[Rfam]
RNA sequence: CAAAACGGGGCUCUCUCUUGUGUAUGAAUUAUGGUGAGAAAGUGCUUUCUGUUUUG
Numbered sequence: 001c002a003a004a005a006c007g008g009g010g011c012u013c014u015c016u017c018u019u020g021u022g023u024a025u026g027a028a029u030u031a032u033g034g035u036g037a038g039a040a041a042g043u044g045c046u047u048u049c050u051g052u053u054u055u056g
Base pairs, nucleotide, nucleotide: 001056002055003054004053005052006051007050008049009048010043011042012041014039015038016037017036018034019033020032021031022030
Source information:
Shown here is a 56-nucleotide RNA sequence from Xenopus tropicalis, a member of the family "mir-427 microRNA precursor family". Rfam 15.1 lists 162 matches to the family in 2 species. It scores 72 bits against the family's covariance model.